[Rfam]
RNA sequence: UCCAGCGGUUGCUCAGUACUCAGUGUAGAUCCUGUGGGGCAGAGGCAGCAGCUACAUCUGGCUACUGGGUCUCUGCUGGCUCCA
Numbered sequence: 001u002c003c004a005g006c007g008g009u010u011g012c013u014c015a016g017u018a019c020u021c022a023g024u025g026u027a028g029a030u031c032c033u034g035u036g037g038g039g040c041a042g043a044g045g046c047a048g049c050a051g052c053u054a055c056a057u058c059u060g061g062c063u064a065c066u067g068g069g070u071c072u073c074u075g076c077u078g079g080c081u082c083c084a
Base pairs, nucleotide, nucleotide: 013068014067015066016065017064018063020061021060022059023057024056025055026054027053028052032051033050034049035048
The family of this 84-nucleotide sequence from Muraenolepis orangiensis is "mir-221 microRNA precursor family". The literature on the family includes a 2008 paper in J Virol by Yao et al., "MicroRNA profile of Marek's disease virus-transformed T-cell line MSB-1: predominance of virus-encoded microRNAs". The source organism's lineage runs through Eukaryota, Teleostei, Euteleosteomorpha, Gadariae and Muraenolepis. It scores 74 bits against the family's covariance model. Rfam 15.1 lists 1,797 matches to the family in 643 species.